[Rfam]
RNA sequence: UGAGCGACUGUAAACAUCCUCGACUGGAAGCUGUGAAGCAGUAGAUGAAGCUUUCAGUCGGAUGUUUGCAGCUGCCAA
Numbered sequence: 001u002g003a004g005c006g007a008c009u010g011u012a013a014a015c016a017u018c019c020u021c022g023a024c025u026g027g028a029a030g031c032u033g034u035g036a037a038g039c040a041g042u043a044g045a046u047g048a049a050g051c052u053u054u055c056a057g058u059c060g061g062a063u064g065u066u067u068g069c070a071g072c073u074g075c076c077a078a
Stems, first nucleotide, its partner, number of pairs: 004075003008071012023058010